Background: The record is a 119-nucleotide RNA sequence from Metabacillus sediminilitoris, which matches "PyrR binding site" in Rfam. It is annotated as a cis-regulatory element. The organism belongs to Metabacillus, within Bacteria.
[Rfam]
RNA sequence: AAAUCUUUUAAUAGAAGUCCAGAGAGGCUUUGAAGGGUGUAAGGCAAAGAUAGGGUAUUCCUAUACCUAAUUUUGCGCUACCUUUAUACACCCUGAUCAUGUUUCAGGGUGUUUUUUAG
Number, nucleotide and partner (000 for none) at each position: 001a000002a038003a000004u036005c035006u034007u033008u032009u000010a000011a000012u000013a000014g031015a030016a029017g028018u027019c026020c000021a000022g000023a000024g000025a000026g019027g018028c017029u016030u015031u014032g008033a007034a006035g005036g004037g000038u002039g000040u000041a000042a000043g000044g000045c075046a074047a073048a072049g071050a000051u069052a068053g000054g067055g066056u065057a064058u063059u000060c000061c000062u000063a058064u057065a056066c055067c054068u052069a051070a000071u049072u048073u047074u046075g045076c000077g000078c000079u000080a000081c000082c000083u000084u000085u000086a114087u000088a112089c111090a110091c109092c108093c107094u106095g105096a104097u000098c000099a000100u000101g000102u000103u000104u096105c095106a094107g093108g092109g091110u090111g089112u088113u000114u086115u000116u000117u000118a000119g000